[Rfam]
RNA sequence: CUCUGCCAUAUUGUCCUGUCACAGCAGUACGUACAUGCUACUGCUGCGUCGGGGCAAGCCGGCUGAU
Numbered sequence: 001c002u003c004u005g006c007c008a009u010a011u012u013g014u015c016c017u018g019u020c021a022c023a024g025c026a027g028u029a030c031g032u033a034c035a036u037g038c039u040a041c042u043g044c045u046g047c048g049u050c051g052g053g054g055c056a057a058g059c060c061g062g063c064u065g066a067u
Stems, first nucleotide, its partner, number of pairs: 003065001005063002012056007022046008

mir-1000 microRNA precursor family: a 67-nucleotide sequence from Vanessa tameamea. Rfam 15.1 lists 152 matches to the family in 150 species. Its family is annotated with negative regulation of glutamate secretion, neurotransmission, miRNA-mediated post-transcriptional gene silencing and RISC complex in the Gene Ontology. Taxonomically the source falls in Vanessa (Eukaryota, Neoptera, Neolepidoptera, Papilionoidea).